[Rfam]
RNA sequence: GAAGCCGGCCGGACAAUCGCUGUGGUGUUUCGCCAGAGAGGAAAGUCCGGGCUCCACAGGGCAGGGUGCCAGGUAACGCCUGGGAGGCGCAAGCCUACGGAAAGUGCCGCAGAAAACAUACCGCCGAUGGCCUUCGGGCACAGGCAAGGGUGAAAAGGUGCGGUAAGAGCGCACCGCGCGGCUGGUAACAGUCGUGGCAGGGUAAACCCCACCCGGAGCAAGACCAAAUAGGGGAACAUUGGCGCGGCCCGCGUCGUUCCCGGGUAGGUCGCUUGAGGUGCACGGUGACGUGUGGCCCAGAUGAAUGAUUGUCCUCGACAGAACCCGGCUUACAGGCCGGCUUCAUUU
Numbered sequence: 001g002a003a004g005c006c007g008g009c010c011g012g013a014c015a016a017u018c019g020c021u022g023u024g025g026u027g028u029u030u031c032g033c034c035a036g037a038g039a040g041g042a043a044a045g046u047c048c049g050g051g052c053u054c055c056a057c058a059g060g061g062c063a064g065g066g067u068g069c070c071a072g073g074u075a076a077c078g079c080c081u082g083g084g085a086g087g088c089g090c091a092a093g094c095c096u097a098c099g100g101a102a103a104g105u106g107c108c109g110c111a112g113a114a115a116a117c118a119u120a121c122c123g124c125c126g127a128u129g130g131c132c133u134u135c136g137g138g139c140a141c142a143g144g145c146a147a148g149g150g151u152g153a154a155a156a157g158g159u160g161c162g163g164u165a166a167g168a169g170c171g172c173a174c175c176g177c178g179c180g181g182c183u184g185g186u187a188a189c190a191g192u193c194g195u196g197g198c199a200g201g202g203u204a205a206a207c208c209c210c211a212c213c214c215g216g217a218g219c220a221a222g223a224c225c226a227a228a229u230a231g232g233g234g235a236a237c238a239u240u241g242g243c244g245c246g247g248c249c250c251g252c253g254u255c256g257u258u259c260c261c262g263g264g265u266a267g268g269u270c271g272c273u274u275g276a277g278g279u280g281c282a283c284g285g286u287g288a289c290g291u292g293u294g295g296c297c298c299a300g301a302u303g304a305a306u307g308a309u310u311g312u313c314c315u316c317g318a319c320a321g322a323a324c325c326c327g328g329c330u331u332a333c334a335g336g337c338c339g340g341c342u343u344c345a346u347u348u
Stems, first nucleotide, its partner, number of pairs: 001344010011333001012313007020038002023035005043331003047328005052218004059250004064214005069083005084098001085096004099209002104207002106203003121149002123145003128140002131137001157175006176198001177196008222270004232261006241255005277296001279294006
The record is a 348-nucleotide sequence from Thiogranum longum, which matches "Bacterial RNase P class A" in Rfam. A search with the family's covariance model found it, with a score of 346 bits. Lineage of the source: Bacteria > Pseudomonadota > Gammaproteobacteria > Chromatiales > Thiogranum.